[Rfam]
RNA sequence: UAAUUUGAAUUGCUCCGAAGCUGGAUAGCCUAAAGCAGAUGCCAUGGCAACCAGACAAGUGUCUACGACACUCGGGUAUUAUGGGAAACUAUAAUAUCUCCUGCUGGAAAGGAGUCUGUUUGACGGUGGU
Numbered sequence: 001u002a003a004u005u006u007g008a009a010u011u012g013c014u015c016c017g018a019a020g021c022u023g024g025a026u027a028g029c030c031u032a033a034a035g036c037a038g039a040u041g042c043c044a045u046g047g048c049a050a051c052c053a054g055a056c057a058a059g060u061g062u063c064u065a066c067g068a069c070a071c072u073c074g075g076g077u078a079u080u081a082u083g084g085g086a087a088a089c090u091a092u093a094a095u096a097u098c099u100c101c102u103g104c105u106g107g108a109a110a111g112g113a114g115u116c117u118g119u120u121u122g123a124c125g126g127u128g129g130u
Stems, first nucleotide, its partner, number of pairs: 004123001012115005021054004026049001028048003035042002059071005074099011100107002
The record is a 130-nucleotide RNA from Desulfosporosinus orientis, which matches "Molybdenum/Tungsten riboswitch aptamer (Moco RNA motif)" in Rfam. The source organism's lineage runs through Bacteria, Bacillati, Eubacteriales, Desulfosporosinus and Desulfosporosinus orientis. The base pairs follow the family's consensus structure, which is taken from published work. Rfam links the family to the GO terms molybdenum ion binding, regulation of gene expression and tungstate binding. It scores 53 bits against the family's covariance model.